Streptococcus sRNA SpR14: an 80-nucleotide RNA sequence from Streptococcus pneumoniae. By type it is a small RNA.
RNA sequence: UUGACAAAGAGCCAAAAAAUUCUCUUUUCAUACUCAUUUAAAAUCAAAAAGGGAAUUUAUCGUUUUACGGAUAUGUAUAU
Dot-bracket structure: .......(((((....((((((((((((..................))))))))))))...)))))..............